[Rfam]
RNA sequence: CUCUGCCACAUAUAACGACUUGCUCCUGUUUCUCCAACAGUCGAGCAGUCGUUUUCUUUCUUGCAGAUGAGAAAUUCGGAGUAAUCUUCAAACUUUGCACCUCUGCCUUCGAAUCACUCUGUGAUGUCGAGGUACAUGGUACUGCCCGCGAGGGCCCGGCACGAUUCCCCCUGUGCUCGCAAUCUGGCAUCAGAAAUAUACAGGGCCUCAAGGCCGGCAUCCGCGUGGUGUUUGUGUCUCGAGGGAUUCCCUUUGGAAGAGCCGUUGCGAAGAUGGUCUGGAGGGCACGCAAGUGUCCUUCCUUACUUUAGUGCAAUCGCAGCGGAAACCUAUCGAUUUCCUCUUGAGGGAUGAUAGGGUUUCAAUUCGAUUCCGAUUACUC
Numbered sequence: 001c002u003c004u005g006c007c008a009c010a011u012a013u014a015a016c017g018a019c020u021u022g023c024u025c026c027u028g029u030u031u032c033u034c035c036a037a038c039a040g041u042c043g044a045g046c047a048g049u050c051g052u053u054u055u056c057u058u059u060c061u062u063g064c065a066g067a068u069g070a071g072a073a074a075u076u077c078g079g080a081g082u083a084a085u086c087u088u089c090a091a092a093c094u095u096u097g098c099a100c101c102u103c104u105g106c107c108u109u110c111g112a113a114u115c116a117c118u119c120u121g122u123g124a125u126g127u128c129g130a131g132g133u134a135c136a137u138g139g140u141a142c143u144g145c146c147c148g149c150g151a152g153g154g155c156c157c158g159g160c161a162c163g164a165u166u167c168c169c170c171c172u173g174u175g176c177u178c179g180c181a182a183u184c185u186g187g188c189a190u191c192a193g194a195a196a197u198a199u200a201c202a203g204g205g206c207c208u209c210a211a212g213g214c215c216g217g218c219a220u221c222c223g224c225g226u227g228g229u230g231u232u233u234g235u236g237u238c239u240c241g242a243g244g245g246a247u248u249c250c251c252u253u254u255g256g257a258a259g260a261g262c263c264g265u266u267g268c269g270a271a272g273a274u275g276g277u278c279u280g281g282a283g284g285g286c287a288c289g290c291a292a293g294u295g296u297c298c299u300u301c302c303u304u305a306c307u308u309u310a311g312u313g314c315a316a317u318c319g320c321a322g323c324g325g326a327a328a329c330c331u332a333u334c335g336a337u338u339u340c341c342u343c344u345u346g347a348g349g350g351a352u353g354a355u356a357g358g359g360u361u362u363c364a365a366u367u368c369g370a371u372u373c374c375g376a377u378u379a380c381u382c
Base pairs, nucleotide, nucleotide: 002067003066004065005064015052016051017050018049019048020047077375078374079373080372081371086272087271088270089269144155145154146153147152158177159176160175161174162173179268180267181266182265186263187262188261202252203251204250325363326362327361328360329359330358331357
Nuclear RNase P: a 382-nucleotide sequence from Cladophialophora immunda.
The family's RNA type in Rfam is ribozyme.
The literature on the family includes a 1998 paper in Annu Rev Biochem by Frank and Pace, "Ribonuclease P: unity and diversity in a tRNA processing ribozyme".
Taxonomically the source falls in Cladophialophora (Eukaryota, Dikarya, Ascomycota, saccharomyceta).